Nucleotides: 073
Base pairs, nucleotide, nucleotide: 001071002070003069004068006038007037008036009035010034013028014027015026048060049059050058051057
Number, partner (000 for none) and nucleotide at each position: 001071u002070u003069a004068c005000u006038a007037u008036g009035a010034u011000g012000g013028u014027u015026g016000c017000a018000u019000a020000g021000u022000u023000c024000a025000a026015c027014a028013g029000a030000c031000u032000g033000a034010a035009u036008c037007g038006u039000g040000a041000a042000a043000g044000a045000g046000a047000u048060a049059g050058a051057u052000a053000u054000a055000c056000c057051a058050u059049u060048u061000a062000u063000c064000u065000g066000a067000u068004g069003u070002a071001g072000a073000a
The record is a 73-nucleotide sequence from Balaenoptera musculus, which matches "Small nucleolar RNA SNORD77" in Rfam. It is annotated as a C/D-box small nucleolar RNA. U77 belongs to the C/D family of snoRNAs. It is predicted to guide 2'O-ribose methylation of large 28S rRNA subunit at position A1521. The family is grouped with related families in Rfam's "SNORD77 clan". The match comes from Rfam's covariance-model search (58 bits).